[Rfam]
RNA sequence: CCGACCGAGGAGCGCUGCAAUCCGCCCAUCGCGGAUCAGGCUCGGCCGGGACGCGGCGGCCGAGGCAUUCGCCCCGGCCACCCGAUCAACGGCGCUCUUGAGAA
Number, nucleotide and partner (000 for none) at each position: 001c000002c048003g047004a000005c045006c044007g043008a042009g000010g000011a000012g000013c000014g000015c000016u000017g000018c000019a000020a000021u035022c034023c033024g032025c031026c000027c000028a000029u000030c000031g025032c024033g023034g022035a021036u000037c000038a000039g000040g000041c000042u008043c007044g006045g005046c000047c003048g002049g000050g000051a000052c000053g000054c000055g000056g000057c000058g000059g000060c000061c000062g000063a000064g000065g000066c000067a000068u000069u000070c000071g000072c000073c000074c000075c000076g000077g000078c000079c000080a000081c000082c000083c000084g000085a000086u000087c000088a000089a000090c000091g000092g000093c000094g000095c000096u000097c000098u000099u000100g000101a000102g000103a000104a000
SAH (S-adenosyl-L-homocysteine) riboswitch aptamer: a 104-nucleotide RNA sequence from Guyparkeria sp. XI15. Lineage of the source: Bacteria > Pseudomonadati > Gammaproteobacteria > Thioalkalibacteraceae > Guyparkeria. It scores 56 bits against the family's covariance model. Gene Ontology terms of the family: S-adenosylhomocysteine metabolic process and regulation of gene expression.